[Rfam]
RNA sequence: GUGCCUUGUAAGGCUGAUGCAGUGCCCAAGGUGGCUGCACAGGAGGGUAAGUCUCCACAAAACCCAGAGAAGAGAUUCUGCAACUCCUCUUUGGAUCCUGUCUGGAGUCACAGUG
Numbered sequence: 001g002u003g004c005c006u007u008g009u010a011a012g013g014c015u016g017a018u019g020c021a022g023u024g025c026c027c028a029a030g031g032u033g034g035c036u037g038c039a040c041a042g043g044a045g046g047g048u049a050a051g052u053c054u055c056c057a058c059a060a061a062a063c064c065c066a067g068a069g070a071a072g073a074g075a076u077u078c079u080g081c082a083a084c085u086c087c088u089c090u091u092u093g094g095a096u097c098c099u100g101u102c103u104g105g106a107g108u109c110a111c112a113g114u115g
Stems, first nucleotide, its partner, number of pairs: 002049004006044002009041001013038002018034001020031001051109001053107005064094007072086003076083002
Dot-bracket structure: .((((((.(...((...(.(..........)..)..))..).)).)))).(.(((((......(((((((.(((.((....))))).)))))))........))))).)......
A member of the RNA family "Small nucleolar RNA SNORA26" from Loxodonta africana, 115 nucleotides long.
Rfam describes the family as follows. The snoRNA HBI-6 belong to the H/ACA family of snoRNAs, guiding the pseudouridylation of position U4522 if the 28S rRNA. HBI-6 is the human orthologue of mouse MBI-6 snoRNA.
The base pairs follow the family's consensus structure, which was predicted with RNAalifold.
NCBI's taxonomy places the organism under Eukaryota, Metazoa, Eumetazoa, Theria, Loxodonta.
The literature on the family includes a 2001 paper in EMBO J by Huttenhofer et al., "RNomics: an experimental approach that identifies 201 candidates for novel, small, non-messenger RNAs in mouse".